[Rfam]
RNA sequence: UUCCCUCUCUAACACCAGCACCUUCUGAGACAGUGCAGCAAUCUGGCAUUUAAAAGAGGGUAGAGGAGCAGGCUCUCUUCCCUCCCCACUGGAUACAAUGUUCUUGCUGGGGCCUUAAGAGAAGCCAACAAG
Numbered sequence: 001u002u003c004c005c006u007c008u009c010u011a012a013c014a015c016c017a018g019c020a021c022c023u024u025c026u027g028a029g030a031c032a033g034u035g036c037a038g039c040a041a042u043c044u045g046g047c048a049u050u051u052a053a054a055a056g057a058g059g060g061u062a063g064a065g066g067a068g069c070a071g072g073c074u075c076u077c078u079u080c081c082c083u084c085c086c087c088a089c090u091g092g093a094u095a096c097a098a099u100g101u102u103c104u105u106g107c108u109g110g111g112g113c114c115u116u117a118a119g120a121g122a123a124g125c126c127a128a129c130a131a132g
Stems, first nucleotide, its partner, number of pairs: 003060006015046004022038002025035001071126003076121001084112005091104003
RNA: Small nucleolar RNA SNORA49
Organism: Albula goreensis